[Rfam]
RNA sequence: GGGGGGGGGGAUUCCUGGUGCCGUGAUUUGAUGCACAAAAAGAAAGAAAAAUCACAUUGCCAGGGAUUUCCACCUCUUC
Numbered sequence: 001g002g003g004g005g006g007g008g009g010g011a012u013u014c015c016u017g018g019u020g021c022c023g024u025g026a027u028u029u030g031a032u033g034c035a036c037a038a039a040a041a042g043a044a045a046g047a048a049a050a051a052u053c054a055c056a057u058u059g060c061c062a063g064g065g066a067u068u069u070c071c072a073c074c075u076c077u078u079c
Base pairs, nucleotide, nucleotide: 001079002078004076005075006074009071010070011067012066013065014064015063016062017061018060019059020058023055024054025053026052027051028050029049
RNA: mir-23 microRNA precursor family